This 113-nucleotide sequence belongs to the Rfam family "drum RNA".
Rfam's curators write: Firmicutes, Bacteroidetes (1 example), Proteobacteria (2 examples), Spirochaetes (2 examples).
It is annotated as a small RNA.

RNA sequence: AGGCGUAGAAGUAAGGUGUUGUGCCAGAAUGCAGUACCUUAUGAGCUUUAUACGGGUUUGACAUUUACCACAAUCUGGCUAGAAAUCGCGGGUUUCGAAAGAAAAUGUCGGAG
Numbered sequence: 001a002g003g004c005g006u007a008g009a010a011g012u013a014a015g016g017u018g019u020u021g022u023g024c025c026a027g028a029a030u031g032c033a034g035u036a037c038c039u040u041a042u043g044a045g046c047u048u049u050a051u052a053c054g055g056g057u058u059u060g061a062c063a064u065u066u067a068c069c070a071c072a073a074u075c076u077g078g079c080u081a082g083a084a085a086u087c088g089c090g091g092g093u094u095u096c097g098a099a100a101g102a103a104a105a106u107g108u109c110g111g112a113g
Base pairs, nucleotide, nucleotide: 001048002047003046004045011042012041013040014039015038016037017036018035019034020033021032022031024078025077026076027075061108062107063106082096083095084094085093086092087091